Source information:
Shown here is a 117-nucleotide sequence from Phyllobacterium endophyticum, a member of the family "TPP riboswitch aptamer (THI element)".

[Rfam]
RNA sequence: CACAUUCACCAGGGGGGUCCCGACAAGGGGCUGAGAUACUGCUGGCUUUUGCAGCGCAGUGACCCGUUGAACCUGAUCCAGUUCAUACUGGCGUAGGGACGGUGCAAAAGUCUUCGC
Numbered sequence: 001c002a003c004a005u006u007c008a009c010c011a012g013g014g015g016g017g018u019c020c021c022g023a024c025a026a027g028g029g030g031c032u033g034a035g036a037u038a039c040u041g042c043u044g045g046c047u048u049u050u051g052c053a054g055c056g057c058a059g060u061g062a063c064c065c066g067u068u069g070a071a072c073c074u075g076a077u078c079c080a081g082u083u084c085a086u087a088c089u090g091g092c093g094u095a096g097g098g099a100c101g102g103u104g105c106a107a108a109a110g111u112c113u114u115c116g117c
Base pairs, nucleotide, nucleotide: 007104008103009102010101012065013064014063017031018030019029020028021027038060039059040058041057042056072097073096074095075094078091079090080089081088

It scores 75 bits against the family's covariance model. Vitamin B(1) in its active form thiamin pyrophosphate (TPP) is an essential coenzyme that is synthesised by coupling of pyrimidine and thiazole moieties in bacteria. The base pairs follow the family's consensus structure, which is taken from published work.